[Rfam]
RNA: rpsB sRNA
Organism: Pseudaminobacter soli
RNA sequence: CACACACGGACUUUGGUAUCUGCCCGGGAGAAAUCCGGCUGACACCUCCGGUGACAGGGAAGAGAUAGCAUCUCGACCAUGUCGGAACGUCCGUGGAGGCUAACCGGAAAGGAACUAGGAAUGGC
Numbered sequence: 001c002a003c004a005c006a007c008g009g010a011c012u013u014u015g016g017u018a019u020c021u022g023c024c025c026g027g028g029a030g031a032a033a034u035c036c037g038g039c040u041g042a043c044a045c046c047u048c049c050g051g052u053g054a055c056a057g058g059g060a061a062g063a064g065a066u067a068g069c070a071u072c073u074c075g076a077c078c079a080u081g082u083c084g085g086a087a088c089g090u091c092c093g094u095g096g097a098g099g100c101u102a103a104c105c106g107g108a109a110a111g112g113a114a115c116u117a118g119g120a121a122u123g124g125c
Stems, first nucleotide, its partner, number of pairs: 001098001003096001005095007015046002023037001026035001053083004